Record summary:
Shown here is a 92-nucleotide sequence from Nyctereutes procyonoides, a member of the family "mir-8799 microRNA precursor family". The base pairs follow the family's consensus structure, which was predicted with RNAalifold. Rfam links the family to the GO terms RISC complex and miRNA-mediated post-transcriptional gene silencing.

RNA sequence: GGGGGGAGCGCCGGAUCCUAGGCUGUGUCCCCCAGUGCCCUGGGCUCCGGGGCCUGCGCCGCUGGAAUCACUCCCGGGCGGUGCAGCCCCCU
Numbered sequence: 001g002g003g004g005g006g007a008g009c010g011c012c013g014g015a016u017c018c019u020a021g022g023c024u025g026u027g028u029c030c031c032c033c034a035g036u037g038c039c040c041u042g043g044g045c046u047c048c049g050g051g052g053c054c055u056g057c058g059c060c061g062c063u064g065g066a067a068u069c070a071c072u073c074c075c076g077g078g079c080g081g082u083g084c085a086g087c088c089c090c091c092u
Stems, first nucleotide, its partner, number of pairs: 001092006010084002012081001014079001017078002021075002025071003028066002032064001033061001035059004042054001044053003